U4atac minor spliceosomal RNA: a 130-nucleotide RNA sequence from Labrus bergylta. Rfam 15.1 lists 1,648 matches to the family in 818 species. The family's consensus secondary structure is taken from published work. Gene Ontology terms of the family: spliceosomal tri-snRNP complex assembly, mRNA 5'-splice site recognition and U4atac snRNP. The source organism's lineage runs through Eukaryota, Bilateria, Teleostomi, Eurypterygia and Labrus.

RNA sequence: ACUUUCCUUGUCUUGGGGUGGUUUGGGAAGCUCAAUGAACGUCUAGUGAGAGUUUCCCUGCUAGCACCAUAAUCAACACAUACGCACCACCUGAACUUUAUGUUCAGUCUCUGGUGCAAUUUUUGGAACC
Numbered sequence: 001a002c003u004u005u006c007c008u009u010g011u012c013u014u015g016g017g018g019u020g021g022u023u024u025g026g027g028a029a030g031c032u033c034a035a036u037g038a039a040c041g042u043c044u045a046g047u048g049a050g051a052g053u054u055u056c057c058c059u060g061c062u063a064g065c066a067c068c069a070u071a072a073u074c075a076a077c078a079c080a081u082a083c084g085c086a087c088c089a090c091c092u093g094a095a096c097u098u099u100a101u102g103u104u105c106a107g108u109c110u111c112u113g114g115u116g117c118a119a120u121u122u123u124u125g126g127a128a129c130c
Stems, first nucleotide, its partner, number of pairs: 006018004021061002027056007039047002084117005091107006